[Rfam]
RNA sequence: CUUGGAGGGGGAGGGUCCCUCAGCCCAGAUUGUGAGAAGGCGCAGGCCAGGCUGAGGGACCCCACUAGUGCACA
Numbered sequence: 001c002u003u004g005g006a007g008g009g010g011g012a013g014g015g016u017c018c019c020u021c022a023g024c025c026c027a028g029a030u031u032g033u034g035a036g037a038a039g040g041c042g043c044a045g046g047c048c049a050g051g052c053u054g055a056g057g058g059a060c061c062c063c064a065c066u067a068g069u070g071c072a073c074a
Stems, first nucleotide, its partner, number of pairs: 003072002006069001009066002013062013028047001030045005

Shown here is a 74-nucleotide sequence from Myotis myotis, a member of the family "mir-9193 microRNA precursor family".
Pairs were carried over by alignment from the consensus structure, which was predicted with RNAalifold.
NCBI's taxonomy places the organism under Eukaryota, Opisthokonta, Euteleostomi, Eutheria, Myotis.
The family has 2 seed sequences and 6,008 matches in Rfam 15.1.